Shown here is an 83-nucleotide RNA sequence from Hibiscus trionum, a member of the family "small nucleolar RNA snoR117".

RNA sequence: UGCCUGUGAUGUUAACAAUUUGUCCGUACCAUCUGAGAUUGAUUUCUCUGAUGCAUUCAUUCAAAUUCUAUUUUCUGAGGCAU
Numbered sequence: 001u002g003c004c005u006g007u008g009a010u011g012u013u014a015a016c017a018a019u020u021u022g023u024c025c026g027u028a029c030c031a032u033c034u035g036a037g038a039u040u041g042a043u044u045u046c047u048c049u050g051a052u053g054c055a056u057u058c059a060u061u062c063a064a065a066u067u068c069u070a071u072u073u074u075c076u077g078a079g080g081c082a083u
Base pairs, nucleotide, nucleotide: 001082002081003080004079

Description
For this family Rfam cites "Mining small RNA sequencing data: a new approach to identify small nucleolar RNAs in Arabidopsis" (Chen and Wu, Nucleic Acids Res, 2009). Rfam classes the family as a C/D-box small nucleolar RNA. The family's consensus secondary structure was predicted with RNAalifold. Its family is annotated with nucleolus and RNA processing in the Gene Ontology. Rfam 15.1 lists 419 matches to the family in 211 species. The match comes from Rfam's covariance-model search (72 bits).